[Rfam]
RNA sequence: UCCAGAGAAAUCUGGAAUCUGAAGGAAGUCUGCGGCAAAUCUCCGCCCCGAGGAACACGAACUUCAUAAGGCUAGAUGUACUUGGACGAGGCUGCGCAACAAGCCAAAACCCAUACUGCCAAAGGGUGCAUAAAGUAGAUGAAGCGGGGACAUGGGGAGGAAGGGUGUGUGC
Numbered sequence: 001u002c003c004a005g006a007g008a009a010a011u012c013u014g015g016a017a018u019c020u021g022a023a024g025g026a027a028g029u030c031u032g033c034g035g036c037a038a039a040u041c042u043c044c045g046c047c048c049c050g051a052g053g054a055a056c057a058c059g060a061a062c063u064u065c066a067u068a069a070g071g072c073u074a075g076a077u078g079u080a081c082u083u084g085g086a087c088g089a090g091g092c093u094g095c096g097c098a099a100c101a102a103g104c105c106a107a108a109a110c111c112c113a114u115a116c117u118g119c120c121a122a123a124g125g126g127u128g129c130a131u132a133a134a135g136u137a138g139a140u141g142a143a144g145c146g147g148g149g150a151c152a153u154g155g156g157g158a159g160g161a162a163g164g165g166u167g168u169g170u171g172c
Base pairs, nucleotide, nucleotide: 001016002015003014004013005012006011028172029171031169032168036163040158041157042156043155044154045153046149047148048147049146050145062144063143064142065141066140071136072135073134076131077130078129079128080127081126084112085111090105091104092103093102
The record is a 172-nucleotide RNA sequence from Lentibacillus sp. JNUCC-1, which matches "Group II catalytic intron D1-D4-3" in Rfam. The base pairs follow the family's consensus structure. Rfam 15.1 lists 4,274 matches to the family in 1,585 species.